Description: Rfam assigns this 68-nucleotide sequence from Colius striatus to the family "Small nucleolar RNA SNORD42". Rfam's curators write: snoRNA U42 is found in intron 3 of the ribosomal protein L23a (RPL23a) gene in humans and is also present in mice. The literature on the family includes a 2002 paper in Mol Cell Biol by Galardi et al., "Purified box C/D snoRNPs are able to reproduce site-specific 2'-O-methylation of target RNA in vitro".
RNA sequence: GUGCAGAUGAUGUAAAUCAUUUUUUCCCACUGAGAAAAGUGAUGUUUCCAAAGGAACCACUGAUGCAC
Numbered sequence: 001g002u003g004c005a006g007a008u009g010a011u012g013u014a015a016a017u018c019a020u021u022u023u024u025u026c027c028c029a030c031u032g033a034g035a036a037a038a039g040u041g042a043u044g045u046u047u048c049c050a051a052a053g054g055a056a057c058c059a060c061u062g063a064u065g066c067a068c
Stems, first nucleotide, its partner, number of pairs: 001068005